The record is a 75-nucleotide RNA from Wolbachia endosymbiont of Onchocerca ochengi, which matches "tRNA" in Rfam. Rfam links the family to the GO term triplet codon-amino acid adaptor activity. Taxonomically the source falls in Wolbachia (Bacteria, Rickettsiales, Anaplasmataceae, Wolbachieae).
RNA sequence: GCACCCUUAGCUCAGUUGGAUUAGAGCAUUUGACUACGGAUCAAAAGGUCGAGCGUUCGAGUCGUUCAGGGUGCA
Number, nucleotide and partner (000 for none) at each position: 001g074002c073003a072004c071005c070006c069007u068008u000009a000010g027011c026012u025013c024014a000015g000016u000017u000018g000019g000020a000021u000022u000023a000024g013025a012026g011027c010028a000029u045030u044031u043032g042033a041034c000035u000036a000037c000038g000039g000040a000041u033042c032043a031044a030045a029046a000047g000048g000049u000050c000051g067052a066053g065054c064055g063056u000057u000058c000059g000060a000061g000062u000063c055064g054065u053066u052067c051068a007069g006070g005071g004072u003073g002074c001075a000